The record is a 173-nucleotide RNA from Physcomitrium patens, which matches "MIR1031 microRNA precursor family" in Rfam. Gene Ontology terms of the family: RISC complex and miRNA-mediated post-transcriptional gene silencing.
RNA sequence: UGGAUCACAAAUUUGCUCAAUGCUCUCUGGAGCUUCUGUGCCGUUGCUUUGGGGAGUGUGGGUUUGUCCCCCUGGACAGGUCUGCAGAACCUGACGGCCUUGGCCCUGAUCUGCAUCCCUCUCUUAAUUGAACCUCAGAAGCUUCAUAGGACAUUGACUUGAUUUGUGACCCU
Numbered sequence: 001u002g003g004a005u006c007a008c009a010a011a012u013u014u015g016c017u018c019a020a021u022g023c024u025c026u027c028u029g030g031a032g033c034u035u036c037u038g039u040g041c042c043g044u045u046g047c048u049u050u051g052g053g054g055a056g057u058g059u060g061g062g063u064u065u066g067u068c069c070c071c072c073u074g075g076a077c078a079g080g081u082c083u084g085c086a087g088a089a090c091c092u093g094a095c096g097g098c099c100u101u102g103g104c105c106c107u108g109a110u111c112u113g114c115a116u117c118c119c120u121c122u123c124u125u126a127a128u129u130g131a132a133c134c135u136c137a138g139a140a141g142c143u144u145c146a147u148a149g150g151a152c153a154u155u156g157a158c159u160u161g162a163u164u165u166g167u168g169a170c171c172c173u
Stems, first nucleotide, its partner, number of pairs: 002172002005169009017157006024150003028146011040134001043133003065115003077102004082097003085093003

Taxonomically the source falls in Physcomitrium (Eukaryota, Viridiplantae, Embryophyta, Bryophyta).